6S / SsrS RNA: a 193-nucleotide sequence from Clostridium manihotivorum. The literature on the family includes a 2000 paper in Cell by Wassarman and Storz, "6S RNA regulates E. coli RNA polymerase activity". Pairs were carried over by alignment from the consensus structure, which is taken from published work. The organism belongs to Clostridium, within Bacteria. From the family's description: E. coli 6S RNA was the first non coding RNA to be sequenced, but its function was unknown until recently. It consists of 184 nucleotides that fold into an extended hairpin structure with a large single-stranded internal bulge. The 6S RNA specifically associates with RNA polymerase holoenzyme containing the sigma70 specificity factor.
RNA sequence: UAUGUUCUAGGAUAUGCGACAAGCUCUUAUUUUGAACCUACAUUACAACAAAGGGAGUUCAAGAUUUAAUUAUGGAUAUGUACCUUUUUGUGAGACCCUUAGACGGCAUCUUAGGCGAUUGAUAUAAUUGUGAGAACACCCACCUAUCGAGAGAUAGGUGUCAAAAUCAGGGCACCGGUAUUUUGGAGUCACU
Numbered sequence: 001u002a003u004g005u006u007c008u009a010g011g012a013u014a015u016g017c018g019a020c021a022a023g024c025u026c027u028u029a030u031u032u033u034g035a036a037c038c039u040a041c042a043u044u045a046c047a048a049c050a051a052a053g054g055g056a057g058u059u060c061a062a063g064a065u066u067u068a069a070u071u072a073u074g075g076a077u078a079u080g081u082a083c084c085u086u087u088u089u090g091u092g093a094g095a096c097c098c099u100u101a102g103a104c105g106g107c108a109u110c111u112u113a114g115g116c117g118a119u120u121g122a123u124a125u126a127a128u129u130g131u132g133a134g135a136a137c138a139c140c141c142a143c144c145u146a147u148c149g150a151g152a153g154a155u156a157g158g159u160g161u162c163a164a165a166a167u168c169a170g171g172g173c174a175c176c177g178g179u180a181u182u183u184u185g186g187a188g189u190c191a192c193u
Stems, first nucleotide, its partner, number of pairs: 004189012017177002031165001033163003036159003053141003057137004064131001067130007